This 115-nucleotide RNA from Actinacidiphila glaucinigra belongs to the Rfam family "Streptomyces-metK RNA". The match comes from Rfam's covariance-model search (95 bits).
RNA sequence: GCGAGAUGCCGUGUCCCUGCGCAUGAGUCGGACGAUAAACUGAGCCAUGGCCCGCCGGGCGCAGCCCCGCGCGAGCCGCCAAUGAUCAGCCAGCAGCCGCUGCAACCCCAGGGAG
Numbered sequence: 001g002c003g004a005g006a007u008g009c010c011g012u013g014u015c016c017c018u019g020c021g022c023a024u025g026a027g028u029c030g031g032a033c034g035a036u037a038a039a040c041u042g043a044g045c046c047a048u049g050g051c052c053c054g055c056c057g058g059g060c061g062c063a064g065c066c067c068c069g070c071g072c073g074a075g076c077c078g079c080c081a082a083u084g085a086u087c088a089g090c091c092a093g094c095a096g097c098c099g100c101u102g103c104a105a106c107c108c109c110a111g112g113g114a115g
Stems, first nucleotide, its partner, number of pairs: 049077003053073002056069004091102004
Annotation: The organism belongs to Actinacidiphila, within Bacteria.